[Rfam]
RNA sequence: AUUGCUGUCUUACCAGGCUGGGUUAGAUCUGCCUCUCCCUGUCUAAUACUGUCUGGUAAUGCCGUCAAU
Dot-bracket structure: .(((.((.((((((((((.(.((((((..............)))))).).))))))))).).)).))).